[Rfam]
RNA sequence: AUCAAACAUCAGGAGUGAUCUGCAGGAGCAGAUCCGCCAACCGAGCCGAGAGGCCACGGUAGUUUGAUCCAUGAAUGGUAGAUGUGCCCGCAAGGGAAAUCAAAGGCCGCCUGAU
Numbered sequence: 001a002u003c004a005a006a007c008a009u010c011a012g013g014a015g016u017g018a019u020c021u022g023c024a025g026g027a028g029c030a031g032a033u034c035c036g037c038c039a040a041c042c043g044a045g046c047c048g049a050g051a052g053g054c055c056a057c058g059g060u061a062g063u064u065u066g067a068u069c070c071a072u073g074a075a076u077g078g079u080a081g082a083u084g085u086g087c088c089c090g091c092a093a094g095g096g097a098a099a100u101c102a103a104a105g106g107c108c109g110c111c112u113g114a115u
Base pairs, nucleotide, nucleotide: 006085007084008083009082010081015035017034018033019032020031021030022029023028036063037062041059042058043057045054046053048110050108087096088095089094
Rfam assigns this 115-nucleotide RNA sequence to the family "SAM-I/IV (S-adenosyl methionine) riboswitch aptamer". Its family is annotated with regulation of gene expression and S-adenosylmethionine metabolic process in the Gene Ontology. It is one of the family's seed sequences.